RNA sequence: UGGACAUUUACUAAUGUUUGGUUUCUUCUCAAGGUGAAGAUAAACUUUUGUGAAUGUCCUAGAGAAAUAUAGUAGCUUUCUGUUCACCCUUGGCAAGUAGAAAGGGUGGAUCGUUCCACUACUGACAUUU
Numbered sequence: 001u002g003g004a005c006a007u008u009u010a011c012u013a014a015u016g017u018u019u020g021g022u023u024u025c026u027u028c029u030c031a032a033g034g035u036g037a038a039g040a041u042a043a044a045c046u047u048u049u050g051u052g053a054a055u056g057u058c059c060u061a062g063a064g065a066a067a068u069a070u071a072g073u074a075g076c077u078u079u080c081u082g083u084u085c086a087c088c089c090u091u092g093g094c095a096a097g098u099a100g101a102a103a104g105g106g107u108g109g110a111u112c113g114u115u116c117c118a119c120u121a122c123u124g125a126c127a128u129u130u
Stems, first nucleotide, its partner, number of pairs: 002059010020045001022043002024040005070124006089104003
This 130-nucleotide sequence from Jaculus jaculus belongs to the Rfam family "Small Cajal body specific RNA 24". Clan: SCARNA3 clan. Taxonomically the source falls in Jaculus (Eukaryota, Sarcopterygii, Tetrapoda, Mammalia). Its family is annotated with RNA processing, nucleolus and Cajal body in the Gene Ontology. About the family: scaRNAs are a specific class of small nuclear RNAs which localise to the Cajal bodies and guide the modification of RNA polymerase II transcribed spliceosomal RNAs U1, U2, U4, U5 and U12. ACA12 belongs to the H/ACA box class of guide RNAs as it has the predicted hairpin-hinge-hairpin-tail structure,the conserved H/ACA-box motifs and is found associated with GAR1.